[Rfam]
Bacterial RNase P class A: a 372-nucleotide RNA from Flavonifractor sp. An100. By type it is a ribozyme. On this family, see Frank and Pace, Annu Rev Biochem 1998: "Ribonuclease P: unity and diversity in a tRNA processing ribozyme". A search with the family's covariance model found it, with a score of 272 bits. Ribonuclease P (RNase P) is a ubiquitous endoribonuclease, found in archaea, bacteria and eukarya as well as chloroplasts and mitochondria. The source organism's lineage runs through Bacteria, Bacillota, Clostridia, Oscillospiraceae and Flavonifractor.
Nucleotides: 372
Stems, first nucleotide, its partner, number of pairs: 001368010011357001012334007020047009052355003056352005061243004069273002074239005080092004094108001095106004109234002114232002116228003130175002132171003136167014183201006203223001205221003208217003247291004256282006266276003298317008
Number, partner (000 for none) and nucleotide at each position: 001368c002367a003366a004365g005364u006363a007362a008361g009360c010359u011357g012334g013333a014332c015331a016330g017329c018328c019000g020047c021046g022045c023044a024043g025042g026041c027040g028039g029000g030000g031000c032000g033000a034000a035000a036000g037000g038000c039028c040027c041026g042025u043024c044023u045022g046021u047020g048000a049000g050000g051000a052355a053354a054353g055000u056352c057351c058350g059349g060348g061243c062242u063241c064240c065000g066000u067000a068000g069273g070272g071000c072000a073000a074239g075238g076237a077236u078235a079000a080092c081091g082090g083089g084000u085000a086000a087000c088000a089083c090082c091081c092080g093000c094108c095106g096105g097104g098103g099000g100000c101000g102000a103098c104097c105096c106095u107000a108094g109234g110233a111000a112000a113000a114232g115231u116228g117227c118226a119000a120000c121000a122000g123000a124000g125000a126000u127000a128000u129000a130175c131174c132171g133170c134169c135000c136167c137166g138165c139164c140163g141162g142161u143160g144159u145158a146157a147156a148155a149154c150000g151000a152000c153000u154149g155148u156147u157146u158145u159144g160143c161142g162141c163140c164139g165138g166137c167136g168000a169134g170133g171132u172000a173000a174131g175130g176000g177000u178000g179000g180000a181000a182000a183201g184200g185199u186198g187197a188196g189000g190000u191000a192000a193000g194000a195000g196188c197187u198186c199185a200184c201183c202000c203223g204000a205221c206220g207219g208217c209216u210215g211000g212000g213000a214000a215210c216209a217208g218000u219207c220206c221205g222000c223203c224000g225000c226118u227117g228116u229000a230000a231115a232114c233110u234109c235078u236077a237076u238075c239074c240064g241063g242062a243061g244000c245000a246000a247291c248290g249289c250288c251000g252000u253000g254000g255000a256282g257281g258280g259279a260278c261277a262000u263000a264000g265000a266276g267275c268274c269000g270000g271000c272070c273069c274268g275267g276266c277261u278260g279259u280258c281257c282256c283000a284000g285000g286000g287000a288250g289249g290248c291247g292000g293000c294000u295000u296000g297000a298317g299316c300315g301314u302313a303312u304311c305310g306000g307000c308000a309000a310305c311304g312303g313302u314301g315300c316299g317298u318000c319000g320000a321000g322000a323000u324000a325000g326000a327000u328018g329017g330016c331015u332014g333013u334012c335000u336000u337000a338000a339000a340000a341000g342000a343000c344000a345000g346000a347000a348060c349059c350058c351057g352056g353054c354053u355052u356000a357011c358000a359010g360009g361008c362007u363006u364005a365004c366003u367002u368001g369000c370000a371000a372000a